The family of this 217-nucleotide RNA sequence is "IS605-orfB-I RNA".
RNA sequence: GUCCUAUACAGAUGUAUUCAACGCAAGAUAGUUGGGCAUCUCCCUUUAGGGCUAAGUUUAUCAGAAGCUCUGGCAACAAUUUUCAUUGUGUGGCUUACAGUCGAAAUGGAAUGAGUCAGAGUGGAAUAGGUUAGCCGUAAGACCUUGAGUUGGAAAACUCUAAAAUUGAGCUAGAGAUAUGGAUUUCAGAAAUUUUGUAUUUUCUAGUUACGGUCUG
Numbered sequence: 001g002u003c004c005u006a007u008a009c010a011g012a013u014g015u016a017u018u019c020a021a022c023g024c025a026a027g028a029u030a031g032u033u034g035g036g037c038a039u040c041u042c043c044c045u046u047u048a049g050g051g052c053u054a055a056g057u058u059u060a061u062c063a064g065a066a067g068c069u070c071u072g073g074c075a076a077c078a079a080u081u082u083u084c085a086u087u088g089u090g091u092g093g094c095u096u097a098c099a100g101u102c103g104a105a106a107u108g109g110a111a112u113g114a115g116u117c118a119g120a121g122u123g124g125a126a127u128a129g130g131u132u133a134g135c136c137g138u139a140a141g142a143c144c145u146u147g148a149g150u151u152g153g154a155a156a157a158c159u160c161u162a163a164a165a166u167u168g169a170g171c172u173a174g175a176g177a178u179a180u181g182g183a184u185u186u187c188a189g190a191a192a193u194u195u196u197g198u199a200u201u202u203u204c205u206a207g208u209u210a211c212g213g214u215c216u217g
Stems, first nucleotide, its partner, number of pairs: 001052006008045001010041006018035005023029001067122008081111007092102002095099001128145005134214006140166001147160005171207007178199006
Dot-bracket structure: ((((((.(.((((((..((((((.....).)))))))))))...).))))))..............((((((((......(((((((....((.(...).))..)))))))...)))))))).....[[[[[.(((((((]]]]].(((((....))))).....)....(((((((((((((..........)))))).))))))).))))))...